[Rfam]
RNA sequence: GGGCACCUUCGGGGGCCUAUACCAUCGGCCACCUGCGGUCCCUGCAAAGGGGCGAGGGGGCUAACCAUAGGCGGGGCAACCCGCCAUUCUGCAAACGGAAGACAGAAG
Numbered sequence: 001g002g003g004c005a006c007c008u009u010c011g012g013g014g015g016c017c018u019a020u021a022c023c024a025u026c027g028g029c030c031a032c033c034u035g036c037g038g039u040c041c042c043u044g045c046a047a048a049g050g051g052g053c054g055a056g057g058g059g060g061c062u063a064a065c066c067a068u069a070g071g072c073g074g075g076g077c078a079a080c081c082c083g084c085c086a087u088u089c090u091g092c093a094a095a096c097g098g099a100a101g102a103c104a105g106a107a108g
Base pairs, nucleotide, nucleotide: 001018002017003016004015006014007013008012027085028084029083
Shown here is a 108-nucleotide RNA sequence from Salipiger pallidus, a member of the family "L2-Alphaproteobacteria ribosomal protein leader". On this family, see Eckert and Weinberg, BMC Microbiol 2020: "Discovery of 20 novel ribosomal leader candidates in bacteria and archaea". It is annotated as a cis-regulatory leader. The source organism's lineage runs through Bacteria, Pseudomonadati, Alphaproteobacteria, Roseobacteraceae and Salipiger.